A member of the RNA family "uup RNA", 48 nucleotides long.
RNA sequence: GAAAAAUCUGCUCUGUACAGUUGAAGCCGAUGAAGCAUUGUACGGAGC
Numbered sequence: 001g002a003a004a005a006a007u008c009u010g011c012u013c014u015g016u017a018c019a020g021u022u023g024a025a026g027c028c029g030a031u032g033a034a035g036c037a038u039u040g041u042a043c044g045g046a047g048c
Stems, first nucleotide, its partner, number of pairs: 011047005017041003
Dot-bracket structure: ..........(((((.(((...................))).))))).
Rfam classes the family as a cis-regulatory element.